[Rfam]
sok antitoxin (CssrC): a 156-nucleotide sequence from Candidatus Erwinia dacicola.
The family's consensus secondary structure is taken from published work.
A search with the family's covariance model found it, with a score of 73 bits.
About the family: Also identified in Shigella as CssrC.
RNA sequence: GGGUGCUCAGGAUCUUUCUGUCCUGAGCCUCUGGUAAAGGUCAGAAUAGAGAAAAGCCCCACUUGAGUUGUAUUCAAAGUGCGGCUGCCUUACAUACGACAAUGUAAAAGUGGCCUUUUAUCUGCUGAAAAGCAAUGGAGAAGGAGGCUAGAGAUG
Numbered sequence: 001g002g003g004u005g006c007u008c009a010g011g012a013u014c015u016u017u018c019u020g021u022c023c024u025g026a027g028c029c030u031c032u033g034g035u036a037a038a039g040g041u042c043a044g045a046a047u048a049g050a051g052a053a054a055a056g057c058c059c060c061a062c063u064u065g066a067g068u069u070g071u072a073u074u075c076a077a078a079g080u081g082c083g084g085c086u087g088c089c090u091u092a093c094a095u096a097c098g099a100c101a102a103u104g105u106a107a108a109a110g111u112g113g114c115c116u117u118u119u120a121u122c123u124g125c126u127g128a129a130a131a132g133c134a135a136u137g138g139a140g141a142a143g144g145a146g147g148c149u150a151g152a153g154a155u156g
Stems, first nucleotide, its partner, number of pairs: 001060003005057003013050003016046005022040003027035002061080004065075004081117001083115003089110003092105003121147003125143002
By type it is an antitoxin RNA. For this family Rfam cites "An antisense RNA controls synthesis of an SOS-induced toxin evolved from an antitoxin" (Kawano et al., Mol Microbiol, 2007).